[Rfam]
RNA sequence: CUGUGGGCUAUCCCUCCCCAACGAGGGACAGCUAUUCUGGAAGGAAUAGGAGAU
Numbered sequence: 001c002u003g004u005g006g007g008c009u010a011u012c013c014c015u016c017c018c019c020a021a022c023g024a025g026g027g028a029c030a031g032c033u034a035u036u037c038u039g040g041a042a043g044g045a046a047u048a049g050g051a052g053a054u
Base pairs, nucleotide, nucleotide: 011028012027013026014025015024016023032049033048034047036045037044038043

The family of this 54-nucleotide RNA from Emcibacter nanhaiensis is "serC leader". On this family, see Corbino et al., Genome Biol 2005: "Evidence for a second class of S-adenosylmethionine riboswitches and other regulatory RNA motifs in alpha-proteobacteria". By type it is a cis-regulatory leader. Rfam describes the family as follows. This family is a putative regulatory RNA structure that is found upstream of the serC-serA operon in some alpha-proteobacteria. It scores 51 bits against the family's covariance model.